A member of the RNA family "msiK RNA" from Sanguibacter antarcticus, 59 nucleotides long. NCBI's taxonomy places the organism under Bacteria, Bacillati, Actinomycetota, Actinomycetes, Sanguibacter. The base pairs follow the family's consensus structure, which is taken from published work.

[Rfam]
RNA sequence: AGAACACCCCAUUCACUACGGAUCGUCCGGCACGUACCUGCCGGUGAAGGGAUGCCACC
Numbered sequence: 001a002g003a004a005c006a007c008c009c010c011a012u013u014c015a016c017u018a019c020g021g022a023u024c025g026u027c028c029g030g031c032a033c034g035u036a037c038c039u040g041c042c043g044g045u046g047a048a049g050g051g052a053u054g055c056c057a058c059c
Stems, first nucleotide, its partner, number of pairs: 009051002012048004027044006